[Rfam]
RNA sequence: CUGCGAUGAUGGGAAACAUUUUUCGUCAACAGCAUCUCACUGUGUGAAUGGUGACUCCUGUGGGCUGAGCAG
Numbered sequence: 001c002u003g004c005g006a007u008g009a010u011g012g013g014a015a016a017c018a019u020u021u022u023u024c025g026u027c028a029a030c031a032g033c034a035u036c037u038c039a040c041u042g043u044g045u046g047a048a049u050g051g052u053g054a055c056u057c058c059u060g061u062g063g064g065c066u067g068a069g070c071a072g
Base pairs, nucleotide, nucleotide: 002071003070004069008027009026010025011024